[Rfam]
RNA sequence: AUACUUACUGGCAGAGGAGAUAACAUGAUCUCAAAGGUGGUUUUCCCAGGGCAAAACUUACCUUUUGCACUCCAGAUGUGUUAACCUCUGUGAUUCUGUGAUUACCUCAAACGUGGGAAACUUGACUGAAUAAUUUGUGUUAAUGGGGGACUGUGUUUGUGCUACCCCCCC
Numbered sequence: 001a002u003a004c005u006u007a008c009u010g011g012c013a014g015a016g017g018a019g020a021u022a023a024c025a026u027g028a029u030c031u032c033a034a035a036g037g038u039g040g041u042u043u044u045c046c047c048a049g050g051g052c053a054a055a056a057c058u059u060a061c062c063u064u065u066u067g068c069a070c071u072c073c074a075g076a077u078g079u080g081u082u083a084a085c086c087u088c089u090g091u092g093a094u095u096c097u098g099u100g101a102u103u104a105c106c107u108c109a110a111a112c113g114u115g116g117g118a119a120a121c122u123u124g125a126c127u128g129a130a131u132a133a134u135u136u137g138u139g140u141u142a143a144u145g146g147g148g149g150a151c152u153g154u155g156u157u158u159g160u161g162c163u164a165c166c167c168c169c170c171c
Stems, first nucleotide, its partner, number of pairs: 012128003016046005022041001024039003048089004055082003059078002062075002091124003094120001095118002145170005153162003
Dot-bracket structure: ...........(((.(((((.(.(((..........))).)))))).((((...(((.((.((..........)).)).)))...)))).((((((....................)).).))).)))................(((((...(((....)))...))))).

The record is a 171-nucleotide RNA from Erinaceus europaeus, which matches "U1 spliceosomal RNA" in Rfam. The match comes from Rfam's covariance-model search (93 bits). For this family Rfam cites "Crystal structure of human spliceosomal U1 snRNP at 5.5 A resolution" (Pomeranz Krummel et al., Nature, 2009). Lineage of the source: Eukaryota > Craniata > Vertebrata > Mammalia > Erinaceus. The family's RNA type in Rfam is spliceosomal small nuclear RNA. Rfam's curators write: U1 is a small nuclear RNA (snRNA) component of the spliceosome (involved in pre-mRNA splicing). Its 5' end forms complementary base pairs with the 5' splice junction, thus defining the 5' donor site of an intron. There are significant differences in sequence and secondary structure between metazoan and yeast U1 snRNAs, the latter being much longer (568 nucleotides as compared to 164 nucleotides in human). Nevertheless, secondary structure predictions suggest that all U1 snRNAs share a 'common core' consisting of helices I, II, the proximal region of III, and IV. This family does not contain the larger yeast sequences.